Rfam assigns this 123-nucleotide RNA from Candidatus Regiella insecticola to the family "Pseudoknot of the regulatory region of the repBA gene". Rfam links the family to the GO term translation. The literature on the family includes a 1995 paper in J Bacteriol by Athanasopoulos et al., "The replication of an IncL/M plasmid is subject to antisense control". The family's consensus secondary structure is taken from published work. NCBI's taxonomy places the organism under Bacteria, Gammaproteobacteria, Enterobacteriaceae, aphid secondary symbionts, Candidatus Regiella insecticola.
RNA sequence: AAACCCCCGAAUCCUGUCUUCAACUUUGGUCGGUUAGAACAGGAUCGAGGGGGCUAAAAUCUGGCUCGCUGCCAGUAAGGAUUAUAGCAAGUGUUCAAUCUUAAUCAAGACUUUUCUAAUCCG
Numbered sequence: 001a002a003a004c005c006c007c008c009g010a011a012u013c014c015u016g017u018c019u020u021c022a023a024c025u026u027u028g029g030u031c032g033g034u035u036a037g038a039a040c041a042g043g044a045u046c047g048a049g050g051g052g053g054c055u056a057a058a059a060u061c062u063g064g065c066u067c068g069c070u071g072c073c074a075g076u077a078a079g080g081a082u083u084a085u086a087g088c089a090a091g092u093g094u095u096c097a098a099u100c101u102u103a104a105u106c107a108a109g110a111c112u113u114u115u116c117u118a119a120u121c122c123g
Stems, first nucleotide, its partner, number of pairs: 002055001004053004008047003013043005019037001022035001028120001030118001032116002